[Rfam]
RNA sequence: GGAUGUGAGGGCUAUCUCACUGCGACACCUGUCACCCCAUUGAUUUGGCUGAUCUGGCUGGCUAGACAGGUGCCCCCUUCCUCCCUCACUGCUCCAUGUGUGUCCCUCCCAAAGCUAUGUGCUCAGUCAAAGAGGAUGACCUUCCUUGAUAAGAGAUGUACUGUUCAUCGGUCAAGGAUAUACGAUAGCUGUGCUCCCCUGCUAGAAUCUCCACACAAGCUCAAGGUCCAUUUGUAGGAGAAUGUCGAGUAGUCAAGCUUCUAAGACUGCAGACACUUCCAAGUGAGGCACUACAUGGGGCAGUCUGCCAUUGCUU
Numbered sequence: 001g002g003a004u005g006u007g008a009g010g011g012c013u014a015u016c017u018c019a020c021u022g023c024g025a026c027a028c029c030u031g032u033c034a035c036c037c038c039a040u041u042g043a044u045u046u047g048g049c050u051g052a053u054c055u056g057g058c059u060g061g062c063u064a065g066a067c068a069g070g071u072g073c074c075c076c077c078u079u080c081c082u083c084c085c086u087c088a089c090u091g092c093u094c095c096a097u098g099u100g101u102g103u104c105c106c107u108c109c110c111a112a113a114g115c116u117a118u119g120u121g122c123u124c125a126g127u128c129a130a131a132g133a134g135g136a137u138g139a140c141c142u143u144c145c146u147u148g149a150u151a152a153g154a155g156a157u158g159u160a161c162u163g164u165u166c167a168u169c170g171g172u173c174a175a176g177g178a179u180a181u182a183c184g185a186u187a188g189c190u191g192u193g194c195u196c197c198c199c200u201g202c203u204a205g206a207a208u209c210u211c212c213a214c215a216c217a218a219g220c221u222c223a224a225g226g227u228c229c230a231u232u233u234g235u236a237g238g239a240g241a242a243u244g245u246c247g248a249g250u251a252g253u254c255a256a257g258c259u260u261c262u263a264a265g266a267c268u269g270c271a272g273a274c275a276c277u278u279c280c281a282a283g284u285g286a287g288g289c290a291c292u293a294c295a296u297g298g299g300g301c302a303g304u305c306u307g308c309c310a311u312u313g314c315u316u
Base pairs, nucleotide, nucleotide: 001095002094003093005089006088007087008086009085010084011083014079024074026072027071028070029069030068031067032066033065035061036060037057038056039055042054043053044052045051104158106155107154108153109126112123114122115121127149128148129147134145135144136143188258189257190256194252195251197249199247201245202244209240210239211238212237215235216234217233218232219231281316282315283314285311287309288308289307290304291303292302294300
Dot-bracket structure: (((.(((((((..(.........(.((((((((.(((((..((((.....)))))))..))...)))))))).)....)...)))))))...)))........(.((((..(.((.....)))..)(((....(((......))).)))...)))..).............................(((...((.(.(.((......((((..(((((...........))))).))))...)).).).))...)))......................(((.(.((((((.(.....).)))..))).)..)))
Rfam assigns this 316-nucleotide RNA from Herpetotheres cachinnans to the family "7SK RNA". The family is grouped with related families in Rfam's "7SK clan". It is annotated as a non-coding RNA gene. The literature on the family includes a 2002 paper in Curr Biol by Blencowe, "Transcription: surprising role for an elusive small nuclear RNA".